[Rfam]
RNA sequence: AAAAAGCAAGGGCUCUGUCGUGAGUGGCACACAUAGGACAGCUACACUAUUCUUCCUAUGGAAUCAACAUUAAUGUAUUUCAGAACCAUAAUUUUUUGGUACCUGGAUACCUGAUGACCAUUGGUCCUGGCACCCCA
Numbered sequence: 001a002a003a004a005a006g007c008a009a010g011g012g013c014u015c016u017g018u019c020g021u022g023a024g025u026g027g028c029a030c031a032c033a034u035a036g037g038a039c040a041g042c043u044a045c046a047c048u049a050u051u052c053u054u055c056c057u058a059u060g061g062a063a064u065c066a067a068c069a070u071u072a073a074u075g076u077a078u079u080u081c082a083g084a085a086c087c088a089u090a091a092u093u094u095u096u097u098g099g100u101a102c103c104u105g106g107a108u109a110c111c112u113g114a115u116g117a118c119c120a121u122u123g124g125u126c127c128u129g130g131c132a133c134c135c136c137a
Stems, first nucleotide, its partner, number of pairs: 011087002014084002016029005031057001035053004040048002059082006105135002108132001111130003116126004
RNA: U11 spliceosomal RNA
Organism: Vulpes vulpes